[Rfam]
Rfam assigns this 130-nucleotide RNA from Burkholderiales bacterium JOSHI_001 to the family "ZMP/ZTP riboswitch aptamer (pfl RNA motif)". Gene Ontology terms of the family: regulation of purine nucleotide biosynthetic process and one-carbon metabolic process.

RNA sequence: CAAUCUUCGCGCGACUGGCGAUAAGGGCCUGCCCGGACACCCGGCAGGCCCCAGGUGGAACACCACCGGGGAGCGCGGGCCAGGGCGGGCCAUCCAGCCCUGGCGUCAGCCGUUCGCCUGGGCAGCCCUG
Numbered sequence: 001c002a003a004u005c006u007u008c009g010c011g012c013g014a015c016u017g018g019c020g021a022u023a024a025g026g027g028c029c030u031g032c033c034c035g036g037a038c039a040c041c042c043g044g045c046a047g048g049c050c051c052c053a054g055g056u057g058g059a060a061c062a063c064c065a066c067c068g069g070g071g072a073g074c075g076c077g078g079g080c081c082a083g084g085g086c087g088g089g090c091c092a093u094c095c096a097g098c099c100c101u102g103g104c105g106u107c108a109g110c111c112g113u114u115c116g117c118c119u120g121g122g123c124a125g126c127c128c129u130g
Base pairs, nucleotide, nucleotide: 006079007078008077009076010075011074012073015070016069017118018117019116020115021114055066056065057064058063107125109123110122111121